[Rfam]
RNA: t44 RNA
RNA sequence: GGGAGGAAACCCUAAUGACACACACAUAUCGCAACCUGGUCCAGGGUGCCGGCACGCCGGUUUGGAGCAUGGGAUAUGUGGAGGAUUAAC
Numbered sequence: 001g002g003g004a005g006g007a008a009a010c011c012c013u014a015a016u017g018a019c020a021c022a023c024a025c026a027u028a029u030c031g032c033a034a035c036c037u038g039g040u041c042c043a044g045g046g047u048g049c050c051g052g053c054a055c056g057c058c059g060g061u062u063u064g065g066a067g068c069a070u071g072g073g074a075u076a077u078g079u080g081g082a083g084g085a086u087u088a089a090c
Stems, first nucleotide, its partner, number of pairs: 023080008035071001037069002040066004048061005